This 110-nucleotide RNA sequence from Blautia sp. OF03-15BH belongs to the Rfam family "TPP riboswitch aptamer (THI element)".
NCBI's taxonomy places the organism under Bacteria, Bacillota, Clostridia, Lachnospirales, Blautia.
The base pairs follow the family's consensus structure, which is taken from published work.
A search with the family's covariance model found it, with a score of 58 bits.
[Rfam]
RNA sequence: CAGAACGACAAGGGGAGCUUGCAAGAAGCAGGCUGAGAGUAGACUGUAUCGUCUUGACCCGGAACCUGAUUUGGAUAAUGCCAACGGAGGGAUAGACGCAGUUUUUUGUG
Numbered sequence: 001c002a003g004a005a006c007g008a009c010a011a012g013g014g015g016a017g018c019u020u021g022c023a024a025g026a027a028g029c030a031g032g033c034u035g036a037g038a039g040u041a042g043a044c045u046g047u048a049u050c051g052u053c054u055u056g057a058c059c060c061g062g063a064a065c066c067u068g069a070u071u072u073g074g075a076u077a078a079u080g081c082c083a084a085c086g087g088a089g090g091g092a093u094a095g096a097c098g099c100a101g102u103u104u105u106u107u108g109u110g
Stems, first nucleotide, its partner, number of pairs: 006098002009095001012060003016055001017033005041054004065090003071084004